[Rfam]
Shown here is a 93-nucleotide sequence, a member of the family "DUF1874 RNA". Pairs were carried over by alignment from the consensus structure, which is taken from published work. The family's RNA type in Rfam is cis-regulatory element.
RNA sequence: GUCAUCCCGCCUUGUGGGUAGGCCAUCCAGGGUAAAUCUCCCCAUAGGGGAGUGCCUACCUACUCCCGCGAGGGAAUAAGACGGGAAGGAGGA
Numbered sequence: 001g002u003c004a005u006c007c008c009g010c011c012u013u014g015u016g017g018g019u020a021g022g023c024c025a026u027c028c029a030g031g032g033u034a035a036a037u038c039u040c041c042c043c044a045u046a047g048g049g050g051a052g053u054g055c056c057u058a059c060c061u062a063c064u065c066c067c068g069c070g071a072g073g074g075a076a077u078a079a080g081a082c083g084g085g086a087a088g089g090a091g092g093a
Base pairs, nucleotide, nucleotide: 005086006085007084008083009082011080012079013078015062016061017060018059019058020057021056022055023054036053038052039051040050041049042048064075065074066073067072